[Rfam]
RNA sequence: ACGCGUGCUCCGGGGUCGGUGAAACUCCGAACCGGCGGUGAUAGUCCGCGACCCGGUCGCUGUCUCGACGAGGCGGCCGGUUGAUCCGGUGAAAUUCCGGAACCGACGGUUAAAGUCCGGAUGGGAGGCAGUGCGCGA
Numbered sequence: 001a002c003g004c005g006u007g008c009u010c011c012g013g014g015g016u017c018g019g020u021g022a023a024a025c026u027c028c029g030a031a032c033c034g035g036c037g038g039u040g041a042u043a044g045u046c047c048g049c050g051a052c053c054c055g056g057u058c059g060c061u062g063u064c065u066c067g068a069c070g071a072g073g074c075g076g077c078c079g080g081u082u083g084a085u086c087c088g089g090u091g092a093a094a095u096u097c098c099g100g101a102a103c104c105g106a107c108g109g110u111u112a113a114a115g116u117c118c119g120g121a122u123g124g125g126a127g128g129c130a131g132u133g134c135g136c137g138a
Stems, first nucleotide, its partner, number of pairs: 003136007010127001017029003031116002033105002035049004044103002053080006085101005107119003
The record is a 138-nucleotide sequence from Phytoactinopolyspora mesophila, which matches "FMN riboswitch aptamer (RFN element)" in Rfam. Gene Ontology term of the family: FMN binding. Taxonomically the source falls in Phytoactinopolyspora (Bacteria, Bacillati, Actinomycetota, Jiangellaceae). A search with the family's covariance model found it, with a score of 96 bits. A reference for the family is Vitreschak et al. (2002), "Regulation of riboflavin biosynthesis and transport genes in bacteria by transcriptional and translational attenuation", Nucleic Acids Res.